[Rfam]
RNA sequence: AAAUAUCAACAGAAUAUAACUCGUAUAAUAUCAGGAAUAUGGCCUGAAAGUUUCUACCCAGUAACCGUAAAUUACUGGACUACGAGUAAAAUAUACCGAAGG
Dot-bracket structure: ..................(((((((...(.(((((.......))))).)........(((((((.......)))))))..)))))))...............
Numbered sequence: 001a002a003a004u005a006u007c008a009a010c011a012g013a014a015u016a017u018a019a020c021u022c023g024u025a026u027a028a029u030a031u032c033a034g035g036a037a038u039a040u041g042g043c044c045u046g047a048a049a050g051u052u053u054c055u056a057c058c059c060a061g062u063a064a065c066c067g068u069a070a071a072u073u074a075c076u077g078g079a080c081u082a083c084g085a086g087u088a089a090a091a092u093a094u095a096c097c098g099a100a101g102g
Stems, first nucleotide, its partner, number of pairs: 019087007029049001031047005058078007
Overview: Rfam assigns this 102-nucleotide RNA from Tepidibacillus decaturensis to the family "Purine riboswitch aptamer". Rfam's curators write: Riboswitches are metabolite binding domains within certain messenger RNAs that serve as precision sensors for their corresponding targets. Gene Ontology term of the family: purine nucleobase biosynthetic process. Pairs were carried over by alignment from the consensus structure, which is taken from published work.